RNA sequence: CCCCGAAAGGGUAAGUAUUACCCUUUCGGGGACAGUGUAUCAAGUAGCA
Numbered sequence: 001c002c003c004c005g006a007a008a009g010g011g012u013a014a015g016u017a018u019u020a021c022c023c024u025u026u027c028g029g030g031g032a033c034a035g036u037g038u039a040u041c042a043a044g045u046a047g048c049a
Stems, first nucleotide, its partner, number of pairs: 001031011
The record is a 49-nucleotide sequence, which matches "ssNA-helicase RNA" in Rfam.